This 166-nucleotide RNA sequence from Streptomyces sp. PAN_FS17 belongs to the Rfam family "c-di-AMP riboswitch aptamer (ydaO/yuaA leader)". Pairs were carried over by alignment from the consensus structure. Rfam's curators write: This family represents a conserved RNA structure found upstream of the ydaO and yuaA genes in Bacillus subtilis and related genes in other bacteria.

RNA sequence: UCGGAUUCCGCGCAAACUCACCCGUGCACGGCAGGAGCGGGGGACCCACAGGUACAACCGCCUGUUCCGGUCUCCGGAACGGCUAGGGGUCAAGUCGCGCCAUGGCGCGGCCGGGCAUCUCCAGCCCGCACCCGACAGCUCACCUCGCAGGCGCCGGAGAGGAAUU
Dot-bracket structure: ((...(((.........................)))((((((....(......................................)(((.....((((........))))..((((.......))))...))).........)))))).))...............